A member of the RNA family "Bacillus sRNA ncr1015" from Paenibacillus sp. FSL H7-0331, 119 nucleotides long. The base pairs follow the family's consensus structure, which is taken from published work.

[Rfam]
RNA sequence: GUGUAAGGUGCAACAAUUAUGUUCAUUUAACACUUGAAAGUCGUAAUCUGAUUAUAUCAUCGUGUCUGUAUAUAUGCAAUAUAAAAGAACCUGAUAAAACUACCCAGGUUCUUUUUUGA
Numbered sequence: 001g002u003g004u005a006a007g008g009u010g011c012a013a014c015a016a017u018u019a020u021g022u023u024c025a026u027u028u029a030a031c032a033c034u035u036g037a038a039a040g041u042c043g044u045a046a047u048c049u050g051a052u053u054a055u056a057u058c059a060u061c062g063u064g065u066c067u068g069u070a071u072a073u074a075u076g077c078a079a080u081a082u083a084a085a086a087g088a089a090c091c092u093g094a095u096a097a098a099a100c101u102a103c104c105c106a107g108g109u110u111c112u113u114u115u116u117u118g119a
Stems, first nucleotide, its partner, number of pairs: 035072002037069001039065001042062002083115011

Record summary
It is annotated as a small RNA. Taxonomically the source falls in Paenibacillus (Bacteria, Bacillota, Caryophanales, Paenibacillaceae). For this family Rfam cites "Identification of regulatory RNAs in Bacillus subtilis" (Irnov et al., Nucleic Acids Res, 2010).